[Rfam]
Shown here is a 76-nucleotide sequence from Ameiurus melas, a member of the family "mir-7563 microRNA precursor family".
The family's consensus secondary structure was predicted with RNAalifold.

RNA sequence: ACCGCGUACUUACCUACUAUACAGUAGCUGAAAUACAUCUAUCUCGCCUACCAUACAGUAGGUAAGUACGCGGUUU
Numbered sequence: 001a002c003c004g005c006g007u008a009c010u011u012a013c014c015u016a017c018u019a020u021a022c023a024g025u026a027g028c029u030g031a032a033a034u035a036c037a038u039c040u041a042u043c044u045c046g047c048c049u050a051c052c053a054u055a056c057a058g059u060a061g062g063u064a065a066g067u068a069c070g071c072g073g074u075u076u
Base pairs, nucleotide, nucleotide: 001074002073003072004071005070006069007068008067009066010065011064012063013062014061015060017058018057020055021054024051025050026049027048029046030045031044033042034041035040